[Rfam]
RNA: Group II catalytic intron D1-D4-2
RNA sequence: GAAGGUAGGCCCUUCGGGUUCGGCGAUCAGGUCGCCGAUUCCAAGCCACCGUGAGCUGCUGCGGUCAAAAGCCGUGGUGGUGAGCGUCGCGGAAACGUCGGGACAAUGAUCCCGGCAGGC
Numbered sequence: 001g002a003a004g005g006u007a008g009g010c011c012c013u014u015c016g017g018g019u020u021c022g023g024c025g026a027u028c029a030g031g032u033c034g035c036c037g038a039u040u041c042c043a044a045g046c047c048a049c050c051g052u053g054a055g056c057u058g059c060u061g062c063g064g065u066c067a068a069a070a071g072c073c074g075u076g077g078u079g080g081u082g083a084g085c086g087u088c089g090c091g092g093a094a095a096c097g098u099c100g101g102g103a104c105a106a107u108g109a110u111c112c113c114g115g116c117a118g119g120c
Stems, first nucleotide, its partner, number of pairs: 001015005016042003020038002023035003047119001049092006055081002058078003062074004097116006